[Rfam]
RNA: Rhodo-rpoB RNA
RNA sequence: GGCUCGGGAGCCACCUGACGGGACAGGUGGCAGGUAUGGAGCCCAAACCCCCUUCCUGCCCAGUGGCGCGCCUCUGUGACCCGACAGAGCGCA
Numbered sequence: 001g002g003c004u005c006g007g008g009a010g011c012c013a014c015c016u017g018a019c020g021g022g023a024c025a026g027g028u029g030g031c032a033g034g035u036a037u038g039g040a041g042c043c044c045a046a047a048c049c050c051c052c053u054u055c056c057u058g059c060c061c062a063g064u065g066g067c068g069c070g071c072c073u074c075u076g077u078g079a080c081c082c083g084a085c086a087g088a089g090c091g092c093a
Stems, first nucleotide, its partner, number of pairs: 001043005010031008070092002072089005